[Rfam]
Shown here is a 42-nucleotide RNA sequence from Tigriopus californicus, a member of the family "Guanidine-II riboswitch aptamer (mini-ykkC)". Pairs were carried over by alignment from the consensus structure, which is taken from published work. About the family: Simpler in structure and has fewer highly conserved nucleotide positions than the ykkC-yxkD leader. Despite this each of its two stem-loop structures directly bind free guanidine. Therefore, mini-ykkC RNA motif represents a distinct class of guanidine-sensing RNAs. The organism belongs to Tigriopus, within Eukaryota. The match comes from Rfam's covariance-model search (35 bits).
RNA sequence: UCUUGGGGACGGCCCUGAGAAUCCUGUCUUGGGGACGGCCCC
Numbered sequence: 001u002c003u004u005g006g007g008g009a010c011g012g013c014c015c016u017g018a019g020a021a022u023c024c025u026g027u028c029u030u031g032g033g034g035a036c037g038g039c040c041c042c
Stems, first nucleotide, its partner, number of pairs: 001020008031042004